[Rfam]
Nucleotides: 050
Stems, first nucleotide, its partner, number of pairs: 001021004005016004037050005
Number, partner (000 for none) and nucleotide at each position: 001021u002020c003019c004018u005016c006015g007014g008013g009000a010000c011000g012000g013008c014007c015006c016005g017000g018004g019003g020002g021001a022000c023000a024000c025000c026000g027000g028000c029000a030000g031000c032000g033000a034000u035000c036000c037050c038049c039048g040047g041046g042000a043000c044000g045000g046041c047040c048039c049038g050037g